Nucleotides: 422
Base pairs, nucleotide, nucleotide: 001418002417003416004415005414006413007412008411009410010409011407012364013363014362015361016360017359018358020040021039022038023037024036025035026034027033028032045405046404047403049402050401051400052399053398054240056238057237060299061298062297063296065236066235067234068233069232070084071083072082073081074080085099086097087096088095089094100231101230104229105228106225107224108223121171122170123167124166125165128162129161131159179197180196181195182194183193184192198220199218200217201216202215203214204213205212206211244321245320246319247318254312255311256310257309258308259307290304291303292302293301294300328347329346330345331344332343333342334341335340
Number, partner (000 for none) and nucleotide at each position: 001418g002417g003416g004415g005414a006413a007412g008411a009410c010409c011407g012364g013363g014362g015361g016360a017359u018358c019000g020040c021039u022038c023037a024036u025035c026034g027033c028032g029000g030000a031000a032028c033027g034026c035025g036024a037023u038022g039021a040020g041000a042000g043000g044000a045405a046404a047403g048000u049402c050401c051400g052399g053398a054240c055000u056238u057237c058000a059000c060299g061298g062297g063296c064000a065236g066235g067234a068233c069232g070084c071083u072082g073081g074080g075000u076000a077000a078000c079000a080074c081073c082072c083071a084070g085099g086097c087096g088095g089094a090000g091000c092000a093000a094089u095088c096087c097086g098000a099085c100231a101230c102000c103000a104229g105228c106225a107224c108223c109000a110000c111000a112000g113000a114000g115000a116000a117000c118000a119000g120000a121171c122170c123167g124166c125165c126000g127000a128162u129161g130000g131159c132000c133000a134000a135000c136000g137000c138000g139000a140000u141000g142000a143000g144000a145000u146000c147000u148000c149000u150000c151000a152000u153000c154000g155000u156000u157000g158000c159131g160000g161129c162128a163000c164000a165125g166124g167123u168000a169000a170122g171121g172000g173000u174000g175000a176000a177000a178000c179197g180196g181195u182194g183193g184192g185000g186000u187000a188000a189000g190000a191000g192184c193183c194182c195181a196180c197179c198220g199218c200217g201216g202215u203214g204213g205212u206211g207000g208000u209000g210000a211206c212205a213204u214203c215202a216201c217200c218199g219000g220198c221000a222000g223108g224107g225106u226000a227000a228105g229104c230101g231100u232069c233068g234067u235066c236065c237057g238056a239000u240054g241000c242000a243000a244321g245320g246319c247318c248000a249000a250000a251000u252000a253000g254312g255311a256310a257309g258308a259307c260000a261000c262000c263000a264000u265000c266000g267000g268000u269000u270000c271000u272000u273000u274000u275000c276000g277000g278000a279000g280000a281000g282000c283000c284000g285000g286000u287000g288000a289000c290304c291303a292302g293301c294300u295000g296063g297062c298061c299060c300294g301293g302292c303291u304290g305000a306000g307259g308258u309257c310256u311255u312254c313000g314000g315000g316000u317000a318247g319246g320245u321244c322000g323000c324000u325000u326000g327000a328347g329346g330345u331344u332343c333342g334341g335340g336000g337000u338000a339000a340335c341334c342333c343332g344331a345330a346329u347328c348000c349000c350000a351000g352000a353000g354000a355000a356000a357000u358018g359017a360016u361015c362014u363013c364012c365000g366000c367000c368000g369000a370000c371000u372000g373000a374000g375000a376000g377000c378000a379000u380000a381000u382000c383000c384000u385000g386000g387000u388000c389000g390000g391000c392000a393000c394000a395000g396000a397000a398053u399052c400051c401050g402049g403047c404046u405045u406000a407011u408000a409010g410009g411008u412007u413006u414005u415004c416003u417002c418001c419000a420000c421000c422000g
The family of this 422-nucleotide RNA from Nitrospira japonica is "Bacterial RNase P class A".
Pairs were carried over by alignment from the consensus structure, which is taken from published work.
Rfam classes the family as a ribozyme.
The organism belongs to Nitrospira, within Bacteria.